A member of the RNA family "Small nucleolar RNA SNORA44" from Dipodomys ordii, 132 nucleotides long. ACA44 is a member of the H/ACA class of snoRNA that guide the sites of modification of uridines to pseudouridines. It scores 89 bits against the family's covariance model. Pairs were carried over by alignment from the consensus structure, which was predicted with PFOLD.
RNA sequence: UAGCAUGUUGCUAAAGGCUGUGGCUGGUUGUUGCCAUGGGAUCUCUAAUGGCUUGUGAGAACAAAAUUGAAGACUUUGACAGCUCAGAUAAGCACAACACCUGAAGCAGCUAAACAUGACUUUUCUAUAAUG
Numbered sequence: 001u002a003g004c005a006u007g008u009u010g011c012u013a014a015a016g017g018c019u020g021u022g023g024c025u026g027g028u029u030g031u032u033g034c035c036a037u038g039g040g041a042u043c044u045c046u047a048a049u050g051g052c053u054u055g056u057g058a059g060a061a062c063a064a065a066a067u068u069g070a071a072g073a074c075u076u077u078g079a080c081a082g083c084u085c086a087g088a089u090a091a092g093c094a095c096a097a098c099a100c101c102u103g104a105a106g107c108a109g110c111u112a113a114a115c116a117u118g119a120c121u122u123u124u125c126u127a128u129a130a131u132g
Stems, first nucleotide, its partner, number of pairs: 011039002016035003020031003069125004082110002085103003